RNA: rpsB sRNA
RNA sequence: CACACACGAAACCGGCAUUCCACUUGAGGGAAUUCCAUCCGGUGGCGGUUAUCCGCUGCAAGUUUCGUGGAGGUAUAACCGGUUAAGGAGCAGCCCA
Numbered sequence: 001c002a003c004a005c006a007c008g009a010a011a012c013c014g015g016c017a018u019u020c021c022a023c024u025u026g027a028g029g030g031a032a033u034u035c036c037a038u039c040c041g042g043u044g045g046c047g048g049u050u051a052u053c054c055g056c057u058g059c060a061a062g063u064u065u066c067g068u069g070g071a072g073g074u075a076u077a078a079c080c081g082g083u084u085a086a087g088g089a090g091c092a093g094c095c096c097a
Stems, first nucleotide, its partner, number of pairs: 001072001003070001005069006025037002028035001044057005